This 151-nucleotide RNA from Lactuca sativa belongs to the Rfam family "small nucleolar RNA snoR135". Rfam classes the family as an H/ACA-box small nucleolar RNA. The family's consensus secondary structure was predicted with RNAalifold. It scores 119 bits against the family's covariance model. On this family, see Chen and Wu, Nucleic Acids Res 2009: "Mining small RNA sequencing data: a new approach to identify small nucleolar RNAs in Arabidopsis".
RNA sequence: CAAGCAGGGAUAGUGUGUAUCGGCGUUGUGCUUAAUCAGUGCACUUUGCUCGAAAGAGUUCCCAUGCGAUACUAAUUUGACAAGGAGAAGGUGGGCAGUUGUGUUCCAAUUAUCUCCAUUGGAAUCUUCAACAAUCAUUUUCUCCACAUUU
Numbered sequence: 001c002a003a004g005c006a007g008g009g010a011u012a013g014u015g016u017g018u019a020u021c022g023g024c025g026u027u028g029u030g031c032u033u034a035a036u037c038a039g040u041g042c043a044c045u046u047u048g049c050u051c052g053a054a055a056g057a058g059u060u061c062c063c064a065u066g067c068g069a070u071a072c073u074a075a076u077u078u079g080a081c082a083a084g085g086a087g088a089a090g091g092u093g094g095g096c097a098g099u100u101g102u103g104u105u106c107c108a109a110u111u112a113u114c115u116c117c118a119u120u121g122g123a124a125u126c127u128u129c130a131a132c133a134a135u136c137a138u139u140u141u142c143u144c145c146a147c148a149u150u151u
Stems, first nucleotide, its partner, number of pairs: 004067003007063004015044006084145011098132004